[Rfam]
Nucleotides: 113
Base pairs, nucleotide, nucleotide: 002065003064004063005062006061007060008059009058010038011037013035014034017032019030020029021028044057045056046055047054048053082111083108084107085106086105088102090101091100092099
Number, partner (000 for none) and nucleotide at each position: 001000a002065c003064c004063a005062g006061c007060u008059g009058u010038g011037c012000a013035g014034c015000c016000g017032u018000a019030g020029g021028g022000g023000c024000g025000u026000g027000a028021c029020c030019c031000a032017a033000g034014g035013c036000g037011g038010c039000u040000u041000a042000a043000a044057g045056g046055a047054u048053g049000c050000a051000g052000g053048u054047a055046u056045c057044c058009g059008c060007a061006g062005c063004u064003g065002g066000a067000c068000c069000a070000c071000a072000u073000u074000c075000c076000c077000g078000g079000c080000g081000c082111g083108u084107g085106c086105g087000c088102g089000g090101u091100g092099g093000c094000u095000g096000a097000c098000g099092c100091c101090a102088c103000c104000g105086c106085g107084c108083a109000c110000g111082c112000g113000c